[Rfam]
RNA sequence: UUAUCGGCGCUAUAGCCAAGUGGUUACGGCGACAGAUUAGAACUUAUUGAGUGAAGAUCUGUUCCUCUUUGAGGGCGCAGGUUCAAAUCCUGCUGGCGUCGUCUGAUAUUUUU
Numbered sequence: 001u002u003a004u005c006g007g008c009g010c011u012a013u014a015g016c017c018a019a020g021u022g023g024u025u026a027c028g029g030c031g032a033c034a035g036a037u038u039a040g041a042a043c044u045u046a047u048u049g050a051g052u053g054a055a056g057a058u059c060u061g062u063u064c065c066u067c068u069u070u071g072a073g074g075g076c077g078c079a080g081g082u083u084c085a086a087a088u089c090c091u092g093c094u095g096g097c098g099u100c101g102u103c104u105g106a107u108a109u110u111u112u113u
Stems, first nucleotide, its partner, number of pairs: 002108006015097004020093004031084002